[Rfam]
RNA sequence: GCAGGGGUGACGUGGGGUGGUCCUCACACGAGAUUUCAGCUCUCGGGGUGUUUCGCAACACAGCAGUUCGAUUCUGCCUCACCUGC
Numbered sequence: 001g002c003a004g005g006g007g008u009g010a011c012g013u014g015g016g017g018u019g020g021u022c023c024u025c026a027c028a029c030g031a032g033a034u035u036u037c038a039g040c041u042c043u044c045g046g047g048g049u050g051u052u053u054c055g056c057a058a059c060a061c062a063g064c065a066g067u068u069c070g071a072u073u074c075u076g077c078c079u080c081a082c083c084u085g086c
Stems, first nucleotide, its partner, number of pairs: 001086005007080001009078001012027006029045005048061005063077004
Notes: The family of this 86-nucleotide RNA sequence from Tribonema minus is "Selenocysteine transfer RNA". The match comes from Rfam's covariance-model search (59 bits). The family has 109 seed sequences and 4,211 matches in Rfam 15.1. Taxonomically the source falls in Tribonema (Eukaryota, Stramenopiles, Ochrophyta, Xanthophyceae).